Bacterial large signal recognition particle RNA: a 276-nucleotide RNA. It is annotated as a non-coding RNA gene. For this family Rfam cites "SRPDB: Signal Recognition Particle Database" (Rosenblad et al., Nucleic Acids Res, 2003). The family is grouped with related families in Rfam's "SRP clan". The base pairs follow the family's consensus structure, which is taken from published work.

RNA sequence: CGUUGCUAGCGGGGAGCUAGCGGUGGCCCUGUACCCGCAAUCCUCUAUAAGGGCGGGUGGCAUUCCCCUCUUAGCCAAACCUUUUGGUCCGCUUAUUGGAGCUUACAAACGUUUGAUGGCCGGGUUCCCACGCGGCUCAUCCUUUGAACCCCGCCAGGGUCCCGAGAGGAAGCAAACGGUACACAGGUCCCUGCGGGUGCCGUGGGAACACCUGGAACUGAAGGUUGAAGGCACCAGAUAUCCCAUAGGGGGUUUUUCGUCACGGGGGGUGCGCCG
Numbered sequence: 001c002g003u004u005g006c007u008a009g010c011g012g013g014g015a016g017c018u019a020g021c022g023g024u025g026g027c028c029c030u031g032u033a034c035c036c037g038c039a040a041u042c043c044u045c046u047a048u049a050a051g052g053g054c055g056g057g058u059g060g061c062a063u064u065c066c067c068c069u070c071u072u073a074g075c076c077a078a079a080c081c082u083u084u085u086g087g088u089c090c091g092c093u094u095a096u097u098g099g100a101g102c103u104u105a106c107a108a109a110c111g112u113u114u115g116a117u118g119g120c121c122g123g124g125u126u127c128c129c130a131c132g133c134g135g136c137u138c139a140u141c142c143u144u145u146g147a148a149c150c151c152c153g154c155c156a157g158g159g160u161c162c163c164g165a166g167a168g169g170a171a172g173c174a175a176a177c178g179g180u181a182c183a184c185a186g187g188u189c190c191c192u193g194c195g196g197g198u199g200c201c202g203u204g205g206g207a208a209c210a211c212c213u214g215g216a217a218c219u220g221a222a223g224g225u226u227g228a229a230g231g232c233a234c235c236a237g238a239u240a241u242c243c244c245a246u247a248g249g250g251g252g253u254u255u256u257u258c259g260u261c262a263c264g265g266g267g268g269g270u271g272c273g274c275c276g
Base pairs, nucleotide, nucleotide: 001276002275004273005272006271011030012029013028014027016024017023018022034057035056036055037054038053065269066268067267068266069265070264074258077255078254081251082250083249084248085247086246097236098235099234101232102231108226109225110224117220118219119218120215121214122213123212124211125210127206128205129204130203131202132201133197136195138193139192141187142186143185145183146182151179152178153177160170161169162168